This 72-nucleotide RNA sequence from Aspergillus clavatus belongs to the Rfam family "tRNA". Taxonomically the source falls in Aspergillus clavatus (Eukaryota, Dikarya, Ascomycota, Aspergillaceae). Rfam classes the family as a transfer RNA.
[Rfam]
RNA sequence: GGCCGGCUGGCCCAAUGGUAAGGCGCUUGACUACGAAUCAAGAGAUUGCAGGUUCGAGCCCUGCGUCGGUCA
Numbered sequence: 001g002g003c004c005g006g007c008u009g010g011c012c013c014a015a016u017g018g019u020a021a022g023g024c025g026c027u028u029g030a031c032u033a034c035g036a037a038u039c040a041a042g043a044g045a046u047u048g049c050a051g052g053u054u055c056g057a058g059c060c061c062u063g064c065g066u067c068g069g070u071c072a
Stems, first nucleotide, its partner, number of pairs: 001071007010024003026042005048064005